[Rfam]
RNA sequence: CCCAAGGCUUUCGCCCUGGGCUAUUAUCGACCGCCCCGUUUGGGGCU
Number, nucleotide and partner (000 for none) at each position: 001c020002c019003c018004a017005a000006g015007g014008c013009u000010u000011u000012c000013g008014c007015c006016c000017u004018g003019g002020g001021c000022u000023a000024u000025u000026a000027u000028c000029g000030a000031c000032c000033g046034c045035c044036c043037c042038g000039u000040u000041u000042g037043g036044g035045g034046c033047u000
Acido-Lenti-1 RNA: a 47-nucleotide RNA sequence from Bremerella alba. Rfam 15.1 lists 2,607 matches to the family in 171 species. The base pairs follow the family's consensus structure, which is taken from published work. Taxonomically the source falls in Bremerella (Bacteria, Pseudomonadati, Planctomycetia, Pirellulaceae).